[Rfam]
RNA: U1A polyadenylation inhibition element (PIE)
RNA sequence: AUGAAAAGCAUUGCACCCAGGGUCUGGAUCCCCAGACAUUGUACCUGGAGCUUUUCUGCCCUUUUUUUUUUUUUUA
Numbered sequence: 001a002u003g004a005a006a007a008g009c010a011u012u013g014c015a016c017c018c019a020g021g022g023u024c025u026g027g028a029u030c031c032c033c034a035g036a037c038a039u040u041g042u043a044c045c046u047g048g049a050g051c052u053u054u055u056c057u058g059c060c061c062u063u064u065u066u067u068u069u070u071u072u073u074u075u076a
Stems, first nucleotide, its partner, number of pairs: 005054005017048004022037005